[Rfam]
RNA sequence: CAUCACCGUGAGUAAUCACGGAUGAUUAGCAGGCAGAAGUCAGCAGACGGCAUAGUAGUCAACGCCCGGGGUAAUGCCCGGUUCAUGGCGAAGGCC
Numbered sequence: 001c002a003u004c005a006c007c008g009u010g011a012g013u014a015a016u017c018a019c020g021g022a023u024g025a026u027u028a029g030c031a032g033g034c035a036g037a038a039g040u041c042a043g044c045a046g047a048c049g050g051c052a053u054a055g056u057a058g059u060c061a062a063c064g065c066c067c068g069g070g071g072u073a074a075u076g077c078c079c080g081g082u083u084c085a086u087g088g089c090g091a092a093g094g095c096c
Stems, first nucleotide, its partner, number of pairs: 002026001006021006039048003049096003058089003066081003
Record summary
This 96-nucleotide RNA from Spirochaeta africana belongs to the Rfam family "Group II catalytic intron D1-D4-1". Rfam describes the family as follows. Group II introns are found in rRNA, tRNA and mRNA of organelles in fungi, plants and protists, and also in mRNA in bacteria. It scores 58 bits against the family's covariance model. Its family is annotated with Group II intron splicing in the Gene Ontology. NCBI's taxonomy places the organism under Bacteria, Spirochaetia, Spirochaetaceae, Spirochaeta, Spirochaeta africana.